[Rfam]
Shown here is a 378-nucleotide part of an RNA from a Bathymodiolus septemdierum thioautotrophic gill symbiont, a member of the family "Bacterial large subunit ribosomal RNA". Rfam links the family to the GO terms ribosome and structural constituent of ribosome.

RNA sequence: GAUAAAGGGGGUGAAAAACCCCCUCGCCAGAAGUCCAAGGUUUCCUACGCAACGUUAAUCGGCGUAGGGUUAGUCGGCCCCUAAGGCGAGGCAGAAAUGCGUAGUCGAUGGGAAACAGGUUAAUAUUCCUGUACUUCAUAUAACUGCGAUGGGAAGACGGAGAAGGUUAGCGCAGCUUGGCGAUGGUUGUCCAAGUUCAAGCGUGUAGAGAUGAGUUUUAGGAAAAUCCGGAACUCUUUAUCUCAAGGCGUGAUAACGAUCCCUCUUUUGGGAGAAGUGCGUGAUACCAUGCUUCCAGGAAAAUCCUCUAAGCUUCAGGUUAUAUGAAACCGUACCCCAAACCGACACAGGUGGACGAGAUGAGAAUUCUAAGGCGCU
Numbered sequence: 001g002a003u004a005a006a007g008g009g010g011g012u013g014a015a016a017a018a019c020c021c022c023c024u025c026g027c028c029a030g031a032a033g034u035c036c037a038a039g040g041u042u043u044c045c046u047a048c049g050c051a052a053c054g055u056u057a058a059u060c061g062g063c064g065u066a067g068g069g070u071u072a073g074u075c076g077g078c079c080c081c082u083a084a085g086g087c088g089a090g091g092c093a094g095a096a097a098u099g100c101g102u103a104g105u106c107g108a109u110g111g112g113a114a115a116c117a118g119g120u121u122a123a124u125a126u127u128c129c130u131g132u133a134c135u136u137c138a139u140a141u142a143a144c145u146g147c148g149a150u151g152g153g154a155a156g157a158c159g160g161a162g163a164a165g166g167u168u169a170g171c172g173c174a175g176c177u178u179g180g181c182g183a184u185g186g187u188u189g190u191c192c193a194a195g196u197u198c199a200a201g202c203g204u205g206u207a208g209a210g211a212u213g214a215g216u217u218u219u220a221g222g223a224a225a226a227u228c229c230g231g232a233a234c235u236c237u238u239u240a241u242c243u244c245a246a247g248g249c250g251u252g253a254u255a256a257c258g259a260u261c262c263c264u265c266u267u268u269u270g271g272g273a274g275a276a277g278u279g280c281g282u283g284a285u286a287c288c289a290u291g292c293u294u295c296c297a298g299g300a301a302a303a304u305c306c307u308c309u310a311a312g313c314u315u316c317a318g319g320u321u322a323u324a325u326g327a328a329a330c331c332g333u334a335c336c337c338c339a340a341a342c343c344g345a346c347a348c349a350g351g352u353g354g355a356c357g358a359g360a361u362g363a364g365a366a367u368u369c370u371a372a373g374g375c376g377c378u
Stems, first nucleotide, its partner, number of pairs: 006024006025376004033356004039336002044068006053061002075332003080111002085106003089102001091100003115132005135328011146313002151308003155304001159295004165288003170282005175196006197256001201251004208244003213236007221229002260273004342351002358370003
A reference for the family is Yusupov et al. (2001), "Crystal structure of the ribosome at 5.5 A resolution", Science. A search with the family's covariance model found it, with a score of 2876 bits.